[Rfam]
RNA sequence: GAAACCUCAUCUUCGGUCGCGCCAUCCGGGCGUUGAUCAGUGCUUACAGCACGGGCGUUUGCCCAGAUGAGGAGAAGGU
Number, nucleotide and partner (000 for none) at each position: 001g000002a000003a000004a000005c072006c071007u070008c069009a068010u067011c066012u065013u000014c000015g000016g037017u036018c035019g033020c032021g031022c030023c029024a000025u000026c000027c000028g000029g023030g022031c021032g020033u019034u000035g018036a017037u016038c000039a000040g052041u051042g050043c049044u000045u000046a000047c000048a000049g043050c042051a041052c040053g064054g063055g062056c061057g000058u000059u000060u000061g056062c055063c054064c053065a012066g011067a010068u009069g008070a007071g006072g005073a000074g000075a000076a000077g000078g000079u000
Rfam assigns this 79-nucleotide RNA sequence to the family "RAGATH-10 RNA". For this family Rfam cites "New classes of self-cleaving ribozymes revealed by comparative genomics analysis" (Weinberg et al., Nat Chem Biol, 2015). The family's RNA type in Rfam is small RNA. The family's consensus secondary structure is taken from published work. It is one of the family's seed sequences.